[Rfam]
RNA: Small nucleolar RNA SNORA65
Organism: Jaculus jaculus
RNA sequence: CCCGCCACUGCAUCUGACUAGUUCCUGUUGGCUGGUGCAAUCUAGUGGUGAAAUGACAGUAAGCCCCAGCUUUUAGGAAACAGGGUUGUUCUUCAUGUGGAUGACUCUGUGCCAAAAGCAUGGGAACAGAU
Numbered sequence: 001c002c003c004g005c006c007a008c009u010g011c012a013u014c015u016g017a018c019u020a021g022u023u024c025c026u027g028u029u030g031g032c033u034g035g036u037g038c039a040a041u042c043u044a045g046u047g048g049u050g051a052a053a054u055g056a057c058a059g060u061a062a063g064c065c066c067c068a069g070c071u072u073u074u075a076g077g078a079a080a081c082a083g084g085g086u087u088g089u090u091c092u093u094c095a096u097g098u099g100g101a102u103g104a105c106u107c108u109g110u111g112c113c114a115a116a117a118g119c120a121u122g123g124g125a126a127c128a129g130a131u
Base pairs, nucleotide, nucleotide: 005048006047007046008045009044010043017036018035019034020033021032022030064124065123066122068121069119070118071117072116076113077112081109082108083107084106085105086104089101090100091099